A member of the RNA family "Streptomyces-metH RNA" from Streptomyces qinzhouensis, 121 nucleotides long. The family's RNA type in Rfam is small RNA.
[Rfam]
RNA sequence: GCGUCCGGCGGAUGGGACGGCCUCUCCUUCCACCGCGGUGCCCGGUUACUCUGACUCCGUGCGCCUUCCCGCCGGAAGCCGCAAAGCCGACAGCCGUCGCAUCCCAGGGAGCCCGUUCAUG
Numbered sequence: 001g002c003g004u005c006c007g008g009c010g011g012a013u014g015g016g017a018c019g020g021c022c023u024c025u026c027c028u029u030c031c032a033c034c035g036c037g038g039u040g041c042c043c044g045g046u047u048a049c050u051c052u053g054a055c056u057c058c059g060u061g062c063g064c065c066u067u068c069c070c071g072c073c074g075g076a077a078g079c080c081g082c083a084a085a086g087c088c089g090a091c092a093g094c095c096g097u098c099g100c101a102u103c104c105c106a107g108g109g110a111g112c113c114c115g116u117u118c119a120u121g
Stems, first nucleotide, its partner, number of pairs: 060083004065078004086100002089098003